[Rfam]
The record is a 75-nucleotide RNA from Haemonchus placei, which matches "mir-5928 microRNA precursor family" in Rfam. Lineage of the source: Eukaryota > Opisthokonta > Chromadorea > Rhabditomorpha > Haemonchus.
RNA sequence: GGCCCAAAUUUGAAGUAAAGUACAUUAGAAGGACCACCUGACCCUACUAAACUACUCUACUUCGAGUUUGUGUCC
Numbered sequence: 001g002g003c004c005c006a007a008a009u010u011u012g013a014a015g016u017a018a019a020g021u022a023c024a025u026u027a028g029a030a031g032g033a034c035c036a037c038c039u040g041a042c043c044c045u046a047c048u049a050a051a052c053u054a055c056u057c058u059a060c061u062u063c064g065a066g067u068u069u070g071u072g073u074c075c
Stems, first nucleotide, its partner, number of pairs: 001074003005070005011064007019056004025050004030045001032043001035040001